[Rfam]
The record is a 366-nucleotide RNA sequence from Herbinix hemicellulosilytica, which matches "Bacterial RNase P class A" in Rfam. Its family is annotated with tRNA processing, ribonuclease P activity and dimeric ribonuclease P complex in the Gene Ontology. The match comes from Rfam's covariance-model search (287 bits).
Nucleotides: 366
Base pairs, nucleotide, nucleotide: 001362002361003360004359005358006357007356008355009354010353012331013330014329015328016327017326018325020035021034022033023032024031025030040349041348042347044346045345046344047343048342049213050212051211052210056244057243058242059241061209062208063207064206065205066080067079068078069077070076081095082093083092084091085090096204097203101202102201103198104197105196117143118142119139120138121137122136123135125133126132127131151169152168153167154166155165156164170192171190172189173188174187175186176185177184178183217264218263219262220261226255227254228253229252230251231250235249236248237247238246239245
Number, partner (000 for none) and nucleotide at each position: 001362u002361g003360a004359g005358u006357a007356g008355c009354a010353c011000a012331g013330a014329u015328g016327g017326u018325c019000g020035c021034g022033c023032c024031u025030u026000u027000u028000a029000u030025a031024a032023g033022g034021u035020g036000a037000g038000g039000a040349a041348a042347g043000u044346c045345c046344g047343g048342g049213c050212u051211u052210c053000a054000u055000a056244g057243g058242g059241c060000a061209g062208g063207g064206u065205g066080c067079c068078g069077g070076a071000u072000a073000a074000c075000g076070u077069c078068c079067g080066g081095u082093g083092g084091a085090g086000g087000c088000g089000a090085c091084u092083c093082c094000a095081a096204g097203g098000c099000u100000a101202g102201u103198g104197c105196a106000a107000c108000a109000g110000a111000a112000a113000u114000a115000a116000a117143c118142c119139g120138c121137c122136g123135a124000g125133g126132c127131a128000u129000u130000u131127u132126g133125c134000a135123u136122c137121g138120g139119u140000a141000a142118g143117g144000a145000u146000g147000g148000a149000a150000a151169g152168g153167u154166g155165g156164u157000u158000u159000a160000a161000g162000a163000g164156a165155c166154c167153a168152c169151c170192g171190c172189c173188c174187u175186u176185c177184c178183g179000g180000u181000a182000a183178c184177g185176g186175a187174a188173g189172g190171g191000g192170c193000a194000g195000a196105u197104g198103u199000a200000a201102a202101c203097c204096c205065c206064a207063c208062c209061c210052g211051a212050a213049g214000c215000a216000a217264g218263g219262c220261c221000u222000a223000a224000c225000a226255g227254a228253a229252a230251g231250c232000g233000a234000u235249a236248c237247g238246g239245u240000g241059g242058c243057c244056c245239g246238c247237c248236g249235u250231g251230c252229u253228u254227u255226c256000g257000g258000g259000u260000u261220g262219g263218c264217c265000g266000c267000g268000c269000g270000g271000c272000a273000a274000c275000a276000g277000g278000c279000g280000a281000a282000a283000g284000c285000g286000g287000u288000u289000g290000c291000c292000g293000g294000a295000g296000c297000u298000g299000u300000a301000u302000g303000g304000c305000g306000a307000c308000a309000u310000a311000c312000a313000g314000u315000c316000c317000a318000g319000a320000c321000a322000g323000a324000u325018g326017a327016c328015c329014a330013u331012c332000c333000g334000c335000g336000a337000c338000a339000g340000a341000a342048c343047c344046c345045g346044g347042c348041u349040u350000a351000c352000a353010g354009u355008g356007c357006u358005a359004c360003u361002c362001a363000u364000a365000u366000u